[Rfam]
RNA: U5 spliceosomal RNA
RNA sequence: AGCUGCGCGGUGAGCACAGAGCGAACUAUUCUUUCGCCUUUUACUAAAGAAUACCGUGUGCGCGCCGCACGUAGCAGCAUACGCCUAUUUUUGGAGGGUGCUCCCCCUUACCGUGAGGGCC
Dot-bracket structure: ..((((.(((((.(((((........((((((((...........))))))))...))))).)))))......))))...........................((((.......))))..